[Rfam]
RNA sequence: UAAUUUUUUUAGGUUUUGAUUUUUAUUACAUCUUCAUGAGAGAAUCCAAACCUAAAGAAAGUG
Numbered sequence: 001u002a003a004u005u006u007u008u009u010u011a012g013g014u015u016u017u018g019a020u021u022u023u024u025a026u027u028a029c030a031u032c033u034u035c036a037u038g039a040g041a042g043a044a045u046c047c048a049a050a051c052c053u054a055a056a057g058a059a060a061g062u063g
Base pairs, nucleotide, nucleotide: 004060005059006058007057008056009055010054011053012052013051014050015049016048018046019045020044021043022042023041024040
A member of the RNA family "mir-737 microRNA precursor family" from Microcaecilia unicolor, 63 nucleotides long.
The match comes from Rfam's covariance-model search (67 bits).
The family's consensus secondary structure was predicted with RNAalifold.
The organism belongs to Microcaecilia, within Eukaryota.